[Rfam]
RNA sequence: GUUCAAGAGUCGUGACGCAAAGUACCUGGCUGGUCACGCGACAACCCGAAUCCAUCGAUUCCCGGGUGUCCCAGGGGAAGAACGGGCUCACGAGAUCUCGUGAUGCAAGAUUCGAUG
Numbered sequence: 001g002u003u004c005a006a007g008a009g010u011c012g013u014g015a016c017g018c019a020a021a022g023u024a025c026c027u028g029g030c031u032g033g034u035c036a037c038g039c040g041a042c043a044a045c046c047c048g049a050a051u052c053c054a055u056c057g058a059u060u061c062c063c064g065g066g067u068g069u070c071c072c073a074g075g076g077g078a079a080g081a082a083c084g085g086g087c088u089c090a091c092g093a094g095a096u097c098u099c100g101u102g103a104u105g106c107a108a109g110a111u112u113c114g115a116u117g
Base pairs, nucleotide, nucleotide: 001083002082003081004080009039011038012037013036014035015034016033021031022030040070041069042068045066046065047064086106087105088103089102090101091100092099093098